[Rfam]
RNA sequence: CCGUACUAGAUGGGGGGGUAGCGGUACCCUGUAACCUGCAACCCGCUAUAGCAGGGUCGAAGCCUAUGCUGAGGGGUUAGUCCUUUUGAGGUCUGGCUUAAGUAAGUGGUGUUGACAGUUGGGUCCUACGCAAUCCAGCUUUACGAACCCCGUCAGGUCCGGAAGGAAGCAGCGGUAAGUAAAUGUCUGGAUGUGCCGUAGGGGUGCCUGACUCGAGCUAACUGCUUAAGUAACGCUUGGGAGGCUACCUCGAAGCUAGGCGUACGG
Numbered sequence: 001c002c003g004u005a006c007u008a009g010a011u012g013g014g015g016g017g018g019u020a021g022c023g024g025u026a027c028c029c030u031g032u033a034a035c036c037u038g039c040a041a042c043c044c045g046c047u048a049u050a051g052c053a054g055g056g057u058c059g060a061a062g063c064c065u066a067u068g069c070u071g072a073g074g075g076g077u078u079a080g081u082c083c084u085u086u087u088g089a090g091g092u093c094u095g096g097c098u099u100a101a102g103u104a105a106g107u108g109g110u111g112u113u114g115a116c117a118g119u120u121g122g123g124u125c126c127u128a129c130g131c132a133a134u135c136c137a138g139c140u141u142u143a144c145g146a147a148c149c150c151c152g153u154c155a156g157g158u159c160c161g162g163a164a165g166g167a168a169g170c171a172g173c174g175g176u177a178a179g180u181a182a183a184u185g186u187c188u189g190g191a192u193g194u195g196c197c198g199u200a201g202g203g204g205u206g207c208c209u210g211a212c213u214c215g216a217g218c219u220a221a222c223u224g225c226u227u228a229a230g231u232a233a234c235g236c237u238u239g240g241g242a243g244g245c246u247a248c249c250u251c252g253a254a255g256c257u258a259g260g261c262g263u264a265c266g267g
Stems, first nucleotide, its partner, number of pairs: 001267006009058003012030004017025001019023001035055005064260002068256003073251005082244009094232002098229006106222002108219003117213008125202006131193002134191005140183005150175004158167003